RNA sequence: AAGGCAUCGACAAAGUAACUCACACGAGCGAAAUCAUUGGCAGAGAAAAGUAAUGAAGGAGCCUAUAACCUUCCCUAAAGGGUAAAUACUACAUCAUGACGUCUCACAGACGGACGCUUCUUGCAUGGCAGGAUUGGCACACUGUUUCAUGUCUGUGAGCUAUGCAGCUAGUCGCCAAAGAAAGGAAGCUGUGCAGGGUGAACUCAAAAGAAAGACAUGAG
Numbered sequence: 001a002a003g004g005c006a007u008c009g010a011c012a013a014a015g016u017a018a019c020u021c022a023c024a025c026g027a028g029c030g031a032a033a034u035c036a037u038u039g040g041c042a043g044a045g046a047a048a049a050g051u052a053a054u055g056a057a058g059g060a061g062c063c064u065a066u067a068a069c070c071u072u073c074c075c076u077a078a079a080g081g082g083u084a085a086a087u088a089c090u091a092c093a094u095c096a097u098g099a100c101g102u103c104u105c106a107c108a109g110a111c112g113g114a115c116g117c118u119u120c121u122u123g124c125a126u127g128g129c130a131g132g133a134u135u136g137g138c139a140c141a142c143u144g145u146u147u148c149a150u151g152u153c154u155g156u157g158a159g160c161u162a163u164g165c166a167g168c169u170a171g172u173c174g175c176c177a178a179a180g181a182a183a184g185g186a187a188g189c190u191g192u193g194c195a196g197g198g199u200g201a202a203c204u205c206a207a208a209a210g211a212a213a214g215a216c217a218u219g220a221g
Stems, first nucleotide, its partner, number of pairs: 004041002019028002073082003092200004097195002100193001101160001103159009116124002127146005164192005172181001
Rfam assigns this 221-nucleotide RNA to the family "RT-2 RNA".